A member of the RNA family "MIR6457 microRNA precursor family" from Populus alba, 290 nucleotides long. Rfam 15.1 lists 30 matches to the family in 9 species. Rfam links the family to the GO terms RISC complex and miRNA-mediated post-transcriptional gene silencing. The source organism's lineage runs through Eukaryota, Euphyllophyta, rosids, Saliceae and Populus.
[Rfam]
RNA sequence: AAUAAGUAAAGAGGCUGCCAAACUUAAAGAGGAAACUAGUCAAAUCUCCAAGCAGAGUGCUGCAAAUCAACUCAGGCUUGAUCUCAUGUUUCAGAUCGUAAAAGCAAGAGCAGAGAAUGAUCAGUGGCUGAGAUCCUUCCUGCUGAAGUGUUUCCUGGAAACAUCCUGAGAAUGAUGUAUCGGAAUCCGACCAUGAUGGAAACAUGAGAUCAAGCCUGAGAUGAUUUGCAGCACUCUGCUUGGAGAUUUGACUAGUUUUCUCUUUAAGUUUGGCAGCCUCUUUACUUAUU
Numbered sequence: 001a002a003u004a005a006g007u008a009a010a011g012a013g014g015c016u017g018c019c020a021a022a023c024u025u026a027a028a029g030a031g032g033a034a035a036c037u038a039g040u041c042a043a044a045u046c047u048c049c050a051a052g053c054a055g056a057g058u059g060c061u062g063c064a065a066a067u068c069a070a071c072u073c074a075g076g077c078u079u080g081a082u083c084u085c086a087u088g089u090u091u092c093a094g095a096u097c098g099u100a101a102a103a104g105c106a107a108g109a110g111c112a113g114a115g116a117a118u119g120a121u122c123a124g125u126g127g128c129u130g131a132g133a134u135c136c137u138u139c140c141u142g143c144u145g146a147a148g149u150g151u152u153u154c155c156u157g158g159a160a161a162c163a164u165c166c167u168g169a170g171a172a173u174g175a176u177g178u179a180u181c182g183g184a185a186u187c188c189g190a191c192c193a194u195g196a197u198g199g200a201a202a203c204a205u206g207a208g209a210u211c212a213a214g215c216c217u218g219a220g221a222u223g224a225u226u227u228g229c230a231g232c233a234c235u236c237u238g239c240u241u242g243g244a245g246a247u248u249u250g251a252c253u254a255g256u257u258u259u260c261u262c263u264u265u266a267a268g269u270u271u272g273g274c275a276g277c278c279u280c281u282u283u284a285c286u287u288a289u290u
Stems, first nucleotide, its partner, number of pairs: 001290013015276001017274034052239005058233003062229005068223002071220001073218003077214002080211013